[Rfam]
RNA sequence: AACUUAUCAAGAGUGGUGGAGGGACUGGCCCGUUGAAACCCGGCAACCUAUUAACUAUAUUAAUGUGGUGCUAAUUCCAACAGCUUAUGGCUGAUAGAUAAGGA
Numbered sequence: 001a002a003c004u005u006a007u008c009a010a011g012a013g014u015g016g017u018g019g020a021g022g023g024a025c026u027g028g029c030c031c032g033u034u035g036a037a038a039c040c041c042g043g044c045a046a047c048c049u050a051u052u053a054a055c056u057a058u059a060u061u062a063a064u065g066u067g068g069u070g071c072u073a074a075u076u077c078c079a080a081c082a083g084c085u086u087a088u089g090g091c092u093g094a095u096a097g098a099u100a101a102g103g104a
Stems, first nucleotide, its partner, number of pairs: 003102006013041001015040003021031003026079003042072004047068002050064004076096001081093005
RNA: SAM riboswitch aptamer (S box leader)
Organism: Clostridium celatum